[Rfam]
RNA sequence: AGCUGAUGCAGAUUGAUGGCUUCUCCUCCCAGUGCCAUCGCGUCGGCUGUUCCCCUCUGGAGGUUUGGAUACCUUCACACUUCAACGGGCCUCGGUUUUUCCGGUGGCCCGAUUUU
Dot-bracket structure: (((((.(((......((((...............)))).))).))))).........(((((((......)))))))........((((((((((.....)))).)))))).....
A member of the RNA family "Alphaproteobacterial ar15" from Sinorhizobium saheli, 116 nucleotides long. The source organism's lineage runs through Bacteria, Pseudomonadota, Alphaproteobacteria, Hyphomicrobiales and Sinorhizobium. Its Rfam clan is "suhB sRNA clan". Its family is annotated with protein binding in the Gene Ontology.